[Rfam]
RNA sequence: CCCGCAGAAAGACGGAAAGACCCCGUGAACCUUUACUGUAGCUUGGCAGUGAUUUUAGAGUUGGCAUGUGUAGGAUAGGUGGGAGACUUUGAAGCAGUGGCGCUAGCCAUUGUGGAGUCAACCUUGAAAUACCACCCUUGGCACCUUUGAAAUCUAACCUGCUGCUCUUUACGAGCAGAGGGACACUGUCUGGUGGGCAGUUUGACUGGGGCGGUCGCCUCCCAAAAAGUAACGGAGGCGCGCGAUGGUCCCCUCAGCCUGAUUGGAAACCAGGCGUCGAGUGCAUUGGCAUAAGGGGGCUUGACUGCGAGACCUACAAGUCGAGCAGGUGCGAAAGCAGGCCAAAGUGAUCCGGUGGUCCCGCGUGGAAGGGCCAUCGCUCAACGGAUAAAAGGUACUCCGGGGAUAACAGGCUUAUUCCAUCCAAGAGUCCAUAUCGACGAUGGAGUUUGGCACCUCGAUGUCGGCUCAUCACAUCCUGGGGCUGGAGCAGGUCCCAAGGGUUUAGCUGUUCGCUAAUUAAAGUGGUACGCGAGCUGGGUUCAGAACGUCGUGAGACAGUUUGGUCCUUAUCUUCUGUGGGCGUA
Numbered sequence: 001c002c003c004g005c006a007g008a009a010a011g012a013c014g015g016a017a018a019g020a021c022c023c024c025g026u027g028a029a030c031c032u033u034u035a036c037u038g039u040a041g042c043u044u045g046g047c048a049g050u051g052a053u054u055u056u057a058g059a060g061u062u063g064g065c066a067u068g069u070g071u072a073g074g075a076u077a078g079g080u081g082g083g084a085g086a087c088u089u090u091g092a093a094g095c096a097g098u099g100g101c102g103c104u105a106g107c108c109a110u111u112g113u114g115g116a117g118u119c120a121a122c123c124u125u126g127a128a129a130u131a132c133c134a135c136c137c138u139u140g141g142c143a144c145c146u147u148u149g150a151a152a153u154c155u156a157a158c159c160u161g162c163u164g165c166u167c168u169u170u171a172c173g174a175g176c177a178g179a180g181g182g183a184c185a186c187u188g189u190c191u192g193g194u195g196g197g198c199a200g201u202u203u204g205a206c207u208g209g210g211g212c213g214g215u216c217g218c219c220u221c222c223c224a225a226a227a228a229g230u231a232a233c234g235g236a237g238g239c240g241c242g243c244g245a246u247g248g249u250c251c252c253c254u255c256a257g258c259c260u261g262a263u264u265g266g267a268a269a270c271c272a273g274g275c276g277u278c279g280a281g282u283g284c285a286u287u288g289g290c291a292u293a294a295g296g297g298g299g300c301u302u303g304a305c306u307g308c309g310a311g312a313c314c315u316a317c318a319a320g321u322c323g324a325g326c327a328g329g330u331g332c333g334a335a336a337g338c339a340g341g342c343c344a345a346a347g348u349g350a351u352c353c354g355g356u357g358g359u360c361c362c363g364c365g366u367g368g369a370a371g372g373g374c375c376a377u378c379g380c381u382c383a384a385c386g387g388a389u390a391a392a393a394g395g396u397a398c399u400c401c402g403g404g405g406a407u408a409a410c411a412g413g414c415u416u417a418u419u420c421c422a423u424c425c426a427a428g429a430g431u432c433c434a435u436a437u438c439g440a441c442g443a444u445g446g447a448g449u450u451u452g453g454c455a456c457c458u459c460g461a462u463g464u465c466g467g468c469u470c471a472u473c474a475c476a477u478c479c480u481g482g483g484g485c486u487g488g489a490g491c492a493g494g495u496c497c498c499a500a501g502g503g504u505u506u507a508g509c510u511g512u513u514c515g516c517u518a519a520u521u522a523a524a525g526u527g528g529u530a531c532g533c534g535a536g537c538u539g540g541g542u543u544c545a546g547a548a549c550g551u552c553g554u555g556a557g558a559c560a561g562u563u564u565g566g567u568c569c570u571u572a573u574c575u576u577c578u579g580u581g582g583g584c585g586u587a
Stems, first nucleotide, its partner, number of pairs: 001583008010575003014570002022404004027400002029396005035201004042193002045190004051154010062143002065140002068137001078136005085119003094113008158181003162178006204216004217239006240385001242342002248300006254280002257275005281290002305328004311322003330339003353379007361372002413454003417451001418448007428438002465540001466538004470532001471529005478503002481498006505519005546564004550559003
RNA: Bacterial large subunit ribosomal RNA, nucleotides 2081 to 2667